RNA: Small nucleolar RNA SNORA32
Organism: Carlito syrichta
RNA sequence: AAGUCACCGCCAACGUUUUUUCACGGGCGAGCUUAAAGCCAUCAUUAAAAAUAAACAAGUAUGCUGUGGACAUGACCAUAAAAAAUUUCCCACUAGGUUUUCUAUCUGUUACCGUGUUAGCAAUCAGCCUAUUGGGAACAUUU
Numbered sequence: 001a002a003g004u005c006a007c008c009g010c011c012a013a014c015g016u017u018u019u020u021u022c023a024c025g026g027g028c029g030a031g032c033u034u035a036a037a038g039c040c041a042u043c044a045u046u047a048a049a050a051a052u053a054a055a056c057a058a059g060u061a062u063g064c065u066g067u068g069g070a071c072a073u074g075a076c077c078a079u080a081a082a083a084a085a086u087u088u089c090c091c092a093c094u095a096g097g098u099u100u101u102c103u104a105u106c107u108g109u110u111a112c113c114g115u116g117u118u119a120g121c122a123a124u125c126a127g128c129c130u131a132u133u134g135g136g137a138a139c140a141u142u143u
Stems, first nucleotide, its partner, number of pairs: 003076004010069003089136004096129004107122003
Dot-bracket structure: ..((((...(((......................................................)))...))))............((((...((((.......(((..........)))...))))...)))).......